This 91-nucleotide RNA from Sneathiella litorea belongs to the Rfam family "Glycine riboswitch aptamer". Pairs were carried over by alignment from the consensus structure.

[Rfam]
RNA sequence: UCGAUCCCCGCGGGAGAGAUGGUCGUUAUAAGCCAUCGCCGAAGGAGCAACCACCCCGGAAACUCUCAGGCAACCGGACCGCAGGGGGAUG
Numbered sequence: 001u002c003g004a005u006c007c008c009c010g011c012g013g014g015a016g017a018g019a020u021g022g023u024c025g026u027u028a029u030a031a032g033c034c035a036u037c038g039c040c041g042a043a044g045g046a047g048c049a050a051c052c053a054c055c056c057c058g059g060a061a062a063c064u065c066u067c068a069g070g071c072a073a074c075c076g077g078a079c080c081g082c083a084g085g086g087g088g089a090u091g
Stems, first nucleotide, its partner, number of pairs: 006086003010082004019036004038071003041067002045065003051059002